[Rfam]
Nucleotides: 133
Stems, first nucleotide, its partner, number of pairs: 003060006011051002014049006022040004028034001073125006084113004089107005
Number, partner (000 for none) and nucleotide at each position: 001000u002000u003060g004059c005058a006057u007056c008055u009000a010000c011051u012050g013000a014049u015048a016047g017046a018045c019044c020000u021000g022040a023039a024038g025037c026000a027000u028034g029000c030000u031000u032000c033000u034028u035000u036000g037025g038024c039023u040022u041000c042000a043000a044019g045018g046017u047016u048015u049014g050012c051011a052000u053000a054000g055008a056007g057006g058005u059004g060003c061000u062000a063000a064000a065000u066000u067000g068000a069000g070000c071000g072000u073125u074124c075123c076122u077121u078120g079000u080000g081000c082000u083000u084113u085112u086111u087110g088000a089107c090106u091105g092104c093103u094000a095000a096000a097000u098000a099000c100000a101000a102000u103093a104092g105091c106090a107089g108000c109000a110087c111086a112085g113084a114000a115000u116000a117000a118000a119000c120078u121077g122076a123075g124074g125073a126000a127000u128000a129000c130000a131000u132000u133000u